A member of the RNA family "Glycine riboswitch aptamer" from Devosia sp. Root685, 91 nucleotides long. The match comes from Rfam's covariance-model search (76 bits). About the family: This family represents the bacterial glycine riboswitch.
[Rfam]
RNA sequence: CCCGGGACUGCGGGAGAGACUGGCUGAAAACGCCAGCGCCGAAGGAGCAACCGCCCCGGAAACUCUCAGGCAAAAGGACCGCAGUCGGGUC
Numbered sequence: 001c002c003c004g005g006g007a008c009u010g011c012g013g014g015a016g017a018g019a020c021u022g023g024c025u026g027a028a029a030a031c032g033c034c035a036g037c038g039c040c041g042a043a044g045g046a047g048c049a050a051c052c053g054c055c056c057c058g059g060a061a062a063c064u065c066u067c068a069g070g071c072a073a074a075a076g077g078a079c080c081g082c083a084g085u086c087g088g089g090u091c
Base pairs, nucleotide, nucleotide: 006086007085008084009083010082011081012080013079020036021035022034023033038071039070040069041067042066045065046064047063051059052058